[Rfam]
RNA sequence: CUACAAUGAUGUCAAUUUUUUUUGUUAACAGCAGUUCCCCUAGUGAGAGUUGGUACUUUGGGUCUGAGUGA
Numbered sequence: 001c002u003a004c005a006a007u008g009a010u011g012u013c014a015a016u017u018u019u020u021u022u023u024g025u026u027a028a029c030a031g032c033a034g035u036u037c038c039c040c041u042a043g044u045g046a047g048a049g050u051u052g053g054u055a056c057u058u059u060g061g062g063u064c065u066g067a068g069u070g071a
Stems, first nucleotide, its partner, number of pairs: 002070003008026004
Small nucleolar RNA SNORD56: a 71-nucleotide sequence from Ailuropoda melanoleuca. The literature on the family includes a 2002 paper in Mol Cell Biol by Galardi et al., "Purified box C/D snoRNPs are able to reproduce site-specific 2'-O-methylation of target RNA in vitro". A search with the family's covariance model found it, with a score of 82 bits. The source organism's lineage runs through Eukaryota, Euteleostomi, Laurasiatheria, Carnivora and Ailuropoda. Pairs were carried over by alignment from the consensus structure, which was predicted with PFOLD.